Acido-Lenti-1 RNA: a 45-nucleotide RNA from Candidatus Venteria ishoeyi. By type it is a small RNA.
RNA sequence: CCUGGGGCAACGCCCCAGGCUAUAUUAAUUCGCCCCGUUGGGGCU
Numbered sequence: 001c002c003u004g005g006g007g008c009a010a011c012g013c014c015c016c017a018g019g020c021u022a023u024a025u026u027a028a029u030u031c032g033c034c035c036c037g038u039u040g041g042g043g044c045u
Stems, first nucleotide, its partner, number of pairs: 001019008032044005